Notes
Shown here is a 135-nucleotide sequence from Danio rerio, a member of the family "Small nucleolar RNA SNORA13". The family's RNA type in Rfam is H/ACA-box small nucleolar RNA. Its Rfam clan is "SNORA13 clan". Pairs were carried over by alignment from the consensus structure, which was predicted with CMfinder. It scores 73 bits against the family's covariance model.

RNA sequence: AGCCUUUAUGUGUUGCCUGUUCAUUUCCUUUUCAGAAUGAACAUGGUGUCAGAAAAGGCGCACAUUAACUCUUAUUGUGAUCUUAAAUGGUUGUCAAAGUACUUCCGUUAAAUAAGCUCAACAAUAAGAACAUGA
Numbered sequence: 001a002g003c004c005u006u007u008a009u010g011u012g013u014u015g016c017c018u019g020u021u022c023a024u025u026u027c028c029u030u031u032u033c034a035g036a037a038u039g040a041a042c043a044u045g046g047u048g049u050c051a052g053a054a055a056a057g058g059c060g061c062a063c064a065u066u067a068a069c070u071c072u073u074a075u076u077g078u079g080a081u082c083u084u085a086a087a088u089g090g091u092u093g094u095c096a097a098a099g100u101a102c103u104u105c106c107g108u109u110a111a112a113u114a115a116g117c118u119c120a121a122c123a124a125u126a127a128g129a130a131c132a133u134g135a
Base pairs, nucleotide, nucleotide: 002059003058004057005056006055007054011051012050014048015047016046017045018043019042020041021040022039023038024037025036071128072127073126074125075123078120079119080118088114089113091111092110